Shown here is a 94-nucleotide RNA, a member of the family "Small nucleolar RNA U83B". Rfam describes the family as follows. U83B belongs to the C/D family of snoRNAs.

[Rfam]
RNA sequence: GCUGUUCUGUGAUGAGGCUCUGGAAUGUGCGCUGGGCACAGCGCCCGAGAGAGACUGAGGAAUUAUUCCCUGUUGCCUUCCUUCUGAGAACAGC
Numbered sequence: 001g002c003u004g005u006u007c008u009g010u011g012a013u014g015a016g017g018c019u020c021u022g023g024a025a026u027g028u029g030c031g032c033u034g035g036g037c038a039c040a041g042c043g044c045c046c047g048a049g050a051g052a053g054a055c056u057g058a059g060g061a062a063u064u065a066u067u068c069c070c071u072g073u074u075g076c077c078u079u080c081c082u083u084c085u086g087a088g089a090a091c092a093g094c
Stems, first nucleotide, its partner, number of pairs: 001094005
The family has 21 seed sequences and 966 matches in Rfam 15.1. It is annotated as a C/D-box small nucleolar RNA.